[Rfam]
RNA: mir-137 microRNA precursor family
RNA sequence: GCUGGCAACGCGUAUUCUUGGGUCAUUUAACACUGAUUUUGAGUUGUUAUUGCUUGAGAAUACACGUCGCUUCC
Number, nucleotide and partner (000 for none) at each position: 001g074002c000003u000004g071005g070006c000007a000008a067009c066010g065011c000012g063013u062014a061015u060016u059017c058018u057019u056020g055021g054022g053023u052024c000025a051026u000027u000028u049029a048030a047031c046032a045033c043034u042035g000036a000037u000038u000039u000040u000041g000042a034043g033044u000045u032046g031047u030048u029049a028050u000051u025052g023053c022054u021055u020056g019057a018058g017059a016060a015061u014062a013063c012064a000065c010066g009067u008068c000069g000070c005071u004072u000073c000074c001